[Rfam]
Rfam assigns this 88-nucleotide RNA sequence from Drosophila rhopaloa to the family "Wolbachia sRNA 59". The base pairs follow the family's consensus structure. Lineage of the source: Eukaryota > Altocrustacea > Allotriocarida > Aparaglossata > Sophophora. The literature on the family includes a 2014 paper in Proc Natl Acad Sci U S A by Mayoral et al., "Wolbachia small noncoding RNAs and their role in cross-kingdom communications". It is annotated as a small RNA.

RNA sequence: AGUAUGCUAAUAAGGUAUAUACUAGUAGAUUCCUCUUGUACCUCACCAACUUGUGGUUACUCUACCAGUAUGUUAUGCUAUAGCGACU
Numbered sequence: 001a002g003u004a005u006g007c008u009a010a011u012a013a014g015g016u017a018u019a020u021a022c023u024a025g026u027a028g029a030u031u032c033c034u035c036u037u038g039u040a041c042c043u044c045a046c047c048a049a050c051u052u053g054u055g056g057u058u059a060c061u062c063u064a065c066c067a068g069u070a071u072g073u074u075a076u077g078c079u080a081u082a083g084c085g086a087c088u
Stems, first nucleotide, its partner, number of pairs: 005082002008080002017073007025065003029061001031059001035056002